[Rfam]
RNA sequence: AACCACACAAUCAAUGAAUGGAUUCACGUGCGAGAUGACGUGGUUGUUUCACCUAGGACGAGGACAUGGCAUCCUAUUACCAGCCAUCGCACGAAAUUAAUAGGAUGCCACGUCCUCAUCCCAGAUGAACAACCACAUCAUCUUCUGGGUGAAUCCAUUCAUCGAUAGUAUGGUU
Numbered sequence: 001a002a003c004c005a006c007a008c009a010a011u012c013a014a015u016g017a018a019u020g021g022a023u024u025c026a027c028g029u030g031c032g033a034g035a036u037g038a039c040g041u042g043g044u045u046g047u048u049u050c051a052c053c054u055a056g057g058a059c060g061a062g063g064a065c066a067u068g069g070c071a072u073c074c075u076a077u078u079a080c081c082a083g084c085c086a087u088c089g090c091a092c093g094a095a096a097u098u099a100a101u102a103g104g105a106u107g108c109c110a111c112g113u114c115c116u117c118a119u120c121c122c123a124g125a126u127g128a129a130c131a132a133c134c135a136c137a138u139c140a141u142c143u144u145c146u147g148g149g150u151g152a153a154u155c156c157a158u159u160c161a162u163c164g165a166u167a168g169u170a171u172g173g174u175u
Base pairs, nucleotide, nucleotide: 001175002174003173004172005171007169010166011165012164014162015161017159018158019157021155022154023153024152025151026150027149030146032144033143035141036140037139038138041135042134043133044132045131046130047129048128051126054123057120058119063114064113065112069108070107071106072105073104074103075102076101077100078099079098086097087096

The record is a 175-nucleotide RNA from Oryza meridionalis, which matches "MIR807 microRNA precursor family" in Rfam. The base pairs follow the family's consensus structure, which was predicted with WAR.